[Rfam]
RNA: Small nucleolar RNA SNORA40
Organism: Dipodomys ordii
RNA sequence: AGCACUUUUAUGCAUCUUCGUUUAAUUUGUAACAAAUAUUUACAGAUAGGUGAAAAUAGUAAAUCCUCUUUUGCAACCCAGAACUCAUUGUUGAGUAUGAGUUUUGGUACAUUUUAGAAGGAAUAUG
Numbered sequence: 001a002g003c004a005c006u007u008u009u010a011u012g013c014a015u016c017u018u019c020g021u022u023u024a025a026u027u028u029g030u031a032a033c034a035a036a037u038a039u040u041u042a043c044a045g046a047u048a049g050g051u052g053a054a055a056a057u058a059g060u061a062a063a064u065c066c067u068c069u070u071u072u073g074c075a076a077c078c079c080a081g082a083a084c085u086c087a088u089u090g091u092u093g094a095g096u097a098u099g100a101g102u103u104u105u106g107g108u109a110c111a112u113u114u115u116a117g118a119a120g121g122a123a124u125a126u127g
Stems, first nucleotide, its partner, number of pairs: 003052005009046001011044001014039002017036002020033002026031001063124002066121002069118003073114001079106010